[Rfam]
Nucleotides: 118
Stems, first nucleotide, its partner, number of pairs: 036100003040096001042094001044092004049087004057080001059078003062072003
Number, partner (000 for none) and nucleotide at each position: 001000u002000c003000c004000u005000u006000u007000c008000u009000a010000u011000a012000u013000u014000u015000g016000a017000g018000g019000c020000u021000a022000u023000g024000a025000a026000a027000a028000u029000a030000u031000c032000u033000a034000c035000a036100g037099u038098a039000c040096a041000u042094a043000c044092a045091u046090g047089g048000u049087g050086g051085u052084g053000g054000a055000a056000g057080a058000a059078c060077u061076u062072a063071c064070g065000u066000c067000a068000a069000a070064c071063g072062u073000c074000g075000u076061g077060a078059g079000c080057u081000g082000a083000g084052c085051a086050c087049c088000c089047u090046u091045g092044u093000a094042u095000c096040u097000g098038u099037a100036c101000u102000g103000u104000a105000c106000a107000a108000a109000a110000a111000g112000g113000c114000u115000u116000g117000u118000c
The record is a 118-nucleotide RNA sequence from Zeaxanthinibacter enoshimensis, which matches "Bacteroidete tryptophan peptide leader RNA" in Rfam.
Rfam links the family to the GO terms S-adenosylmethionine metabolic process and regulation of gene expression.
It is annotated as a cis-regulatory leader.
Pairs were carried over by alignment from the consensus structure, which is taken from published work.